Alphaproteobacterial sRNA ar45: a 147-nucleotide RNA from Ahrensia marina. The source organism's lineage runs through Bacteria, Pseudomonadati, Alphaproteobacteria, Hyphomicrobiales and Ahrensia. For this family Rfam cites "A survey of sRNA families in alpha-proteobacteria" (del Val et al., RNA Biol, 2012). The match comes from Rfam's covariance-model search (111 bits).
RNA sequence: ACCCAUAGUCGCACGUGCCUAUAGGUAUCCGCCGUCUCUUCGAUAUGGUGAAGAGCACGGAAAGGUAACCGGAGCUAACCCCUCCGGACGCAUCAGGGACCAACCUUGAUACGUGGAUAUCGUAAAGCAACGACGGUGAGGGUCUCA
Dot-bracket structure: ((((...((((....(((.....(((((((.((((..(((((......)))))...))))........(((((.........)))))(((...(((((.....)))))...)))))))))).....))).)))).....))))....